[Rfam]
Nucleotides: 087
Stems, first nucleotide, its partner, number of pairs: 001086012014073003018069005024064002
Number, partner (000 for none) and nucleotide at each position: 001086g002085u003084g004083g005082a006081a007080g008079g009078g010077g011076c012075a013000u014073g015072c016071a017000g018069a019068g020067g021066a022065g023000c024064a025063g026000g027000a028000g029000a030000u031000u032000c033000a034000g035000u036000u037000u038000g039000a040000a041000g042000c043000u044000g045000g046000a047000c048000u049000u050000c051000a052000c053000u054000u055000u056000u057000g058000c059000c060000u061000c062000u063025c064024u065022c066021u067020c068019c069018u070000g071016u072015g073014c074000u075012u076011g077010c078009c079008u080007c081006u082005u083004c084003c085002a086001u087000u
A member of the RNA family "MIR528 microRNA precursor family" from Oryza sativa, 87 nucleotides long.
Rfam links the family to the GO terms miRNA-mediated post-transcriptional gene silencing and RISC complex.
The sequence is in the family's curated seed alignment.